[Rfam]
RNA sequence: AUUUGCCUGUGUGUGGUGGUAUUUGGCACCAGGGCAUGUGUGUUUACGUGCAUAUGGAUGGUACUCAGUACAAGGGACAAUUAUGUUGGCCU
Numbered sequence: 001a002u003u004u005g006c007c008u009g010u011g012u013g014u015g016g017u018g019g020u021a022u023u024u025g026g027c028a029c030c031a032g033g034g035c036a037u038g039u040g041u042g043u044u045u046a047c048g049u050g051c052a053u054a055u056g057g058a059u060g061g062u063a064c065u066c067a068g069u070a071c072a073a074g075g076g077a078c079a080a081u082u083a084u085g086u087u088g089g090c091c092u
Stems, first nucleotide, its partner, number of pairs: 004083002008079003017073001019071005025065002028062004032053001034051007
Dot-bracket structure: ...((..(((......(.(((((.((.(((((.(((((((....))))))).).....)))).)).))))).)...)))..)).........
Source information
Shown here is a 92-nucleotide RNA from Branchiostoma belcheri, a member of the family "mir-2060 microRNA precursor family". The family has 7 seed sequences and 3,696 matches in Rfam 15.1. Its family is annotated with miRNA-mediated post-transcriptional gene silencing and RISC complex in the Gene Ontology. Pairs were carried over by alignment from the consensus structure, which was predicted with RNAalifold.